[Rfam]
RNA: mir-548 microRNA precursor family
Organism: Cebus imitator
RNA sequence: UAUUAGGUUGAUGAAUAAGUAAUUGCAGUUUUUGCCAUUGGAAGUAAUGGCAAAAACUGCAAUUACUUUUUCAUCAACUUAAUA
Numbered sequence: 001u002a003u004u005a006g007g008u009u010g011a012u013g014a015a016u017a018a019g020u021a022a023u024u025g026c027a028g029u030u031u032u033u034g035c036c037a038u039u040g041g042a043a044g045u046a047a048u049g050g051c052a053a054a055a056a057c058u059g060c061a062a063u064u065a066c067u068u069u070u071u072c073a074u075c076a077a078c079u080u081a082a083u084a
Stems, first nucleotide, its partner, number of pairs: 001084015017068024